[Rfam]
RNA sequence: GGAUGUGAGGGCGAUCUGGCUGCGACAUCCGUCACCCUGUUGAUCACUAGUGUUGAUUCGGCUGAUCUGGCUGGCCAGGCAGGUGUCCCCUUCCUCCCUCAACGCUCCAUGUGCGUCCCUCCCGAAGCUGCGCGCUCGGUCGACGGUACCGCUCAUCCGUCCAGGGUAUAUGGGAGCUGCGCUCCCCUGCUGGAACCUCCAAACAAGCUCAAGGUCCAUUUGUAGGAGAACGUAGGGUAGUCAAGCUUCCAAGACUGCAGACACAUCCAAGUGAGGCGCUGCAUGGGGCAGUUUGCCAUUGUUU
Numbered sequence: 001g002g003a004u005g006u007g008a009g010g011g012c013g014a015u016c017u018g019g020c021u022g023c024g025a026c027a028u029c030c031g032u033c034a035c036c037c038u039g040u041u042g043a044u045c046a047c048u049a050g051u052g053u054u055g056a057u058u059c060g061g062c063u064g065a066u067c068u069g070g071c072u073g074g075c076c077a078g079g080c081a082g083g084u085g086u087c088c089c090c091u092u093c094c095u096c097c098c099u100c101a102a103c104g105c106u107c108c109a110u111g112u113g114c115g116u117c118c119c120u121c122c123c124g125a126a127g128c129u130g131c132g133c134g135c136u137c138g139g140u141c142g143a144c145g146g147u148a149c150c151g152c153u154c155a156u157c158c159g160u161c162c163a164g165g166g167u168a169u170a171u172g173g174g175a176g177c178u179g180c181g182c183u184c185c186c187c188u189g190c191u192g193g194a195a196c197c198u199c200c201a202a203a204c205a206a207g208c209u210c211a212a213g214g215u216c217c218a219u220u221u222g223u224a225g226g227a228g229a230a231c232g233u234a235g236g237g238u239a240g241u242c243a244a245g246c247u248u249c250c251a252a253g254a255c256u257g258c259a260g261a262c263a264c265a266u267c268c269a270a271g272u273g274a275g276g277c278g279c280u281g282c283a284u285g286g287g288g289c290a291g292u293u294u295g296c297c298a299u300u301g302u303u304u
Stems, first nucleotide, its partner, number of pairs: 001108003006101006013093002018090002024087006031080003035074002037070003042067004047061002117146002120143002122139004127135002176246003182240002185237006197228004203223005269304003273299001275297003278292005
This 304-nucleotide RNA from Oxyruncus cristatus belongs to the Rfam family "7SK RNA". Taxonomically the source falls in Oxyruncus (Eukaryota, Sauropsida, Neognathae, Australaves). 7SK was discovered as an abundant small nuclear RNA in the mid-70s but a possible function has only recently been suggested. Two independent studies have found that 7SK RNA binds the CDK9/cyclin T complex (known as elongation factor P-TEFb). P-TEFb activates transcription by phosphorylating the C-terminal domain of RNA polymerase II. This process is negatively regulated by the 7SK RNP. The secondary structure of 7SK RNA shown here was proposed by Wasserman and Steitz on the basis of chemical modification and enzymatic cleavage experiments. The match comes from Rfam's covariance-model search (290 bits). On this family, see Blencowe, Curr Biol 2002: "Transcription: surprising role for an elusive small nuclear RNA". Its Rfam clan is "7SK clan".